The family of this 97-nucleotide RNA sequence from Paraburkholderia steynii is "Burkholderia sRNA Bp1_Cand684_SIPHT". The base pairs follow the family's consensus structure, which was predicted with RNAalifold. The source organism's lineage runs through Bacteria, Pseudomonadati, Pseudomonadota, Burkholderiales and Paraburkholderia. Rfam 15.1 lists 176 matches to the family in 44 species. Rfam classes the family as a small RNA.

[Rfam]
RNA sequence: AGAAAAGUAGGUGCCGCCCCGCACAGGGGCGACGCUUGAAGCACGCUAACGUAACGCGGAUGCCAGCGCAAACACAACCCCACACCCCGAACCCAUC
Numbered sequence: 001a002g003a004a005a006a007g008u009a010g011g012u013g014c015c016g017c018c019c020c021g022c023a024c025a026g027g028g029g030c031g032a033c034g035c036u037u038g039a040a041g042c043a044c045g046c047u048a049a050c051g052u053a054a055c056g057c058g059g060a061u062g063c064c065a066g067c068g069c070a071a072a073c074a075c076a077a078c079c080c081c082a083c084a085c086c087c088c089g090a091a092c093c094c095a096u097c
Stems, first nucleotide, its partner, number of pairs: 011069004015031006058064002091096001